[Rfam]
Notes:
The record is a 45-nucleotide RNA sequence from Pseudohongiella nitratireducens, which matches "Guanidine-II riboswitch aptamer (mini-ykkC)" in Rfam. A search with the family's covariance model found it, with a score of 47 bits. On this family, see Huang et al., Cell Chem Biol 2017: "The Structure of the Guanidine-II Riboswitch". NCBI's taxonomy places the organism under Bacteria, Gammaproteobacteria, Pseudomonadales, Pseudohongiellaceae, Pseudohongiella.
RNA sequence: ACGUGAGGACGACCUCACCGCUCGACUUUUCACGGGGACGACCCC
Numbered sequence: 001a002c003g004u005g006a007g008g009a010c011g012a013c014c015u016c017a018c019c020g021c022u023c024g025a026c027u028u029u030u031c032a033c034g035g036g037g038a039c040g041a042c043c044c045c
Stems, first nucleotide, its partner, number of pairs: 003018006034045004